Record summary:
The record is a 45-nucleotide RNA sequence from Thermomonospora cellulosilytica, which matches "L17-Actino-Proteobacteria ribosomal protein leader" in Rfam. On this family, see Eckert and Weinberg, BMC Microbiol 2020: "Discovery of 20 novel ribosomal leader candidates in bacteria and archaea". By type it is a cis-regulatory leader.
RNA sequence: CGUUCGCAAUGAACGAGCCACCGGUACCUGAUACGGCCGGUGCAG
Numbered sequence: 001c002g003u004u005c006g007c008a009a010u011g012a013a014c015g016a017g018c019c020a021c022c023g024g025u026a027c028c029u030g031a032u033a034c035g036g037c038c039g040g041u042g043c044a045g
Stems, first nucleotide, its partner, number of pairs: 001015006017043001019042007